Annotation: The record is a 242-nucleotide RNA sequence from Agrilus planipennis, which matches "R2 RNA element" in Rfam. The base pairs follow the family's consensus structure, which is taken from published work. Rfam classes the family as a cis-regulatory element. It scores 44 bits against the family's covariance model. Rfam's curators write: This family represents the 3' UTR region of the R2 retrotransposable element.

RNA sequence: AUAUGGUCAAUAAGAUUCAUUUACACAGACGGAUAUCUACUUGCUGCCUCAACAAGUCAAAACAUGACCACAUAACACUACCAUGAUCACACCGGCUGAAGAGGACCCUAGUUGGUCCUAGAACGGCCUGAGGUAGAGGGGUUUUAGUCGGUAGGUCCGAGGAUUUCUUCCUCGGGAAUCGGACACUACCCAGUCGUACGGACGGCUGGGUGUCUUUUGAAGAUUUCCCCUCUUCCACGAAA
Dot-bracket structure: ..............................................((((..................................................)))).......((.((...............((.((.(((......(((.(....((((((((.....))))))))...).))).(.(((((..............))))))..............)))..)).)))).)).
Numbered sequence: 001a002u003a004u005g006g007u008c009a010a011u012a013a014g015a016u017u018c019a020u021u022u023a024c025a026c027a028g029a030c031g032g033a034u035a036u037c038u039a040c041u042u043g044c045u046g047c048c049u050c051a052a053c054a055a056g057u058c059a060a061a062a063c064a065u066g067a068c069c070a071c072a073u074a075a076c077a078c079u080a081c082c083a084u085g086a087u088c089a090c091a092c093c094g095g096c097u098g099a100a101g102a103g104g105a106c107c108c109u110a111g112u113u114g115g116u117c118c119u120a121g122a123a124c125g126g127c128c129u130g131a132g133g134u135a136g137a138g139g140g141g142u143u144u145u146a147g148u149c150g151g152u153a154g155g156u157c158c159g160a161g162g163a164u165u166u167c168u169u170c171c172u173c174g175g176g177a178a179u180c181g182g183a184c185a186c187u188a189c190c191c192a193g194u195c196g197u198a199c200g201g202a203c204g205g206c207u208g209g210g211u212g213u214c215u216u217u218u219g220a221a222g223a224u225u226u227c228c229c230c231u232c233u234u235c236c237a238c239g240a241a242a
Stems, first nucleotide, its partner, number of pairs: 047104004112241002115238002132236002135233002138229003147184003151180001156176008186212001188211005